RNA: ASpks TB sRNA
RNA sequence: CUUCAGCGAGCCCAGCCACACCGGGUCCUGUUCGUCACGUCCCUGGCCAUAGGUGGCCAGCAGGGCACGGGCUUC
Numbered sequence: 001c002u003u004c005a006g007c008g009a010g011c012c013c014a015g016c017c018a019c020a021c022c023g024g025g026u027c028c029u030g031u032u033c034g035u036c037a038c039g040u041c042c043c044u045g046g047c048c049a050u051a052g053g054u055g056g057c058c059a060g061c062a063g064g065g066c067a068c069g070g071g072c073u074u075c
Stems, first nucleotide, its partner, number of pairs: 014026001016024002031071003038065001043060003047056003